[Rfam]
Fungal signal recognition particle RNA: a 277-nucleotide RNA from Colletotrichum lupini. Rfam links the family to the GO terms SRP-dependent cotranslational protein targeting to membrane, signal sequence recognition, signal recognition particle, plasma membrane targeting and signal recognition particle, endoplasmic reticulum targeting.

RNA sequence: CGGCUGUAAUGGUCAAAUGGUUGAAGGCUUUCAUUACUCUUCUUCCGCUACCCCAUCCACAUUGGAACCCCUCAGCGGCGCCCAGUGCGAAUGCUGCGGUGGCCACCCACUCGCACGGGUAACCUGCGAUCGCUGCGUGCGGCCCUAAGCAAUGGAGAUGACACUUGAGGGAGGUUUCACUCUGCAGAGGUAUCUUCACCGUCGCAUGGCGUGCUGGAUUACGAUCGCUGGGGGCUUGGGGUAGUGGAGGAGGAUAGAGAUGCCGACUCCAAUUUUU
Numbered sequence: 001c002g003g004c005u006g007u008a009a010u011g012g013u014c015a016a017a018u019g020g021u022u023g024a025a026g027g028c029u030u031u032c033a034u035u036a037c038u039c040u041u042c043u044u045c046c047g048c049u050a051c052c053c054c055a056u057c058c059a060c061a062u063u064g065g066a067a068c069c070c071c072u073c074a075g076c077g078g079c080g081c082c083c084a085g086u087g088c089g090a091a092u093g094c095u096g097c098g099g100u101g102g103c104c105a106c107c108c109a110c111u112c113g114c115a116c117g118g119g120u121a122a123c124c125u126g127c128g129a130u131c132g133c134u135g136c137g138u139g140c141g142g143c144c145c146u147a148a149g150c151a152a153u154g155g156a157g158a159u160g161a162c163a164c165u166u167g168a169g170g171g172a173g174g175u176u177u178c179a180c181u182c183u184g185c186a187g188a189g190g191u192a193u194c195u196u197c198a199c200c201g202u203c204g205c206a207u208g209g210c211g212u213g214c215u216g217g218a219u220u221a222c223g224a225u226c227g228c229u230g231g232g233g234g235c236u237u238g239g240g241g242u243a244g245u246g247g248a249g250g251a252g253g254a255u256a257g258a259g260a261u262g263c264c265g266a267c268u269c270c271a272a273u274u275u276u277u
Stems, first nucleotide, its partner, number of pairs: 002014003019274005025268001027264001029262001031260002034257003038253003044248010069234003073230005079223002082217008091207004096202004101144001103142002106139001107137001111129005117124002145149001153198007164189003171182003

The organism belongs to Colletotrichum acutatum species complex, within Eukaryota. Rfam 15.1 lists 748 matches to the family in 741 species. The base pairs follow the family's consensus structure, which is taken from published work. A search with the family's covariance model found it, with a score of 158 bits.